[Rfam]
RNA sequence: CAGCUCGAGUUUCUCUUCAUCGACGCAUAAAUCUUUCGCCUUUUACUAAAGAUUUCCGUGGAGGGGAACCUUUGCGAGUGACUUGUAUUCACGUAGUAUCUGCUCACAGCAGAGCU
Numbered sequence: 001c002a003g004c005u006c007g008a009g010u011u012u013c014u015c016u017u018c019a020u021c022g023a024c025g026c027a028u029a030a031a032u033c034u035u036u037c038g039c040c041u042u043u044u045a046c047u048a049a050a051g052a053u054u055u056c057c058g059u060g061g062a063g064g065g066g067a068a069c070c071u072u073u074g075c076g077a078g079u080g081a082c083u084u085g086u087a088u089u090c091a092c093g094u095a096g097u098a099u100c101u102g103c104u105c106a107c108a109g110c111a112g113a114g115c116u
Base pairs, nucleotide, nucleotide: 003079004078005077006076009069010068011067012066013065014064015063016062017061018060019059029055030054031053032052033051034050035049036048095116099113100112101111102110
A member of the RNA family "U5 spliceosomal RNA" from Labeo rohita, 116 nucleotides long. U5 RNA is a component of both types of known spliceosome. The precise function of this molecule is unknown, though it is known that the 5' loop is required for splice site selection and p220 binding, and that both the 3' stem-loop and the Sm site are important for Sm protein binding and cap methylation. Its family is annotated with U5 snRNP and spliceosomal tri-snRNP complex assembly in the Gene Ontology. Rfam 15.1 lists 28,527 matches to the family in 2,489 species.